[Rfam]
A member of the RNA family "Small nucleolar RNA SNORA12" from Alligator sinensis, 142 nucleotides long. Rfam describes the family as follows. U108 belongs to the H/ACA family of snoRNAs. The sequence is predicted to guide the pseudouridylation of the U372 residue in the 28S rRNA subunit. However it has not been reported as a pseudouridylation site. The match comes from Rfam's covariance-model search (69 bits).
RNA sequence: CAUUGUGGUAGUCUUCCUGUGGCGGAUCAGUUACAGUAUCAGAUCAGCCUCGAACUACCACAUAGAGUAUUGAGGAGGAGGACUGUCUUGAAAACUGUUCUAGGACUUUCAGUUUUCUGUUAUGCUUCUACCUCCCACAGAA
Numbered sequence: 001c002a003u004u005g006u007g008g009u010a011g012u013c014u015u016c017c018u019g020u021g022g023c024g025g026a027u028c029a030g031u032u033a034c035a036g037u038a039u040c041a042g043a044u045c046a047g048c049c050u051c052g053a054a055c056u057a058c059c060a061c062a063u064a065g066a067g068u069a070u071u072g073a074g075g076a077g078g079a080g081g082a083c084u085g086u087c088u089u090g091a092a093a094a095c096u097g098u099u100c101u102a103g104g105a106c107u108u109u110c111a112g113u114u115u116u117c118u119g120u121u122a123u124g125c126u127u128c129u130a131c132c133u134c135c136c137a138c139a140g141a142a
Stems, first nucleotide, its partner, number of pairs: 005061007021049003025045004030040001074135005080088003102126002105123001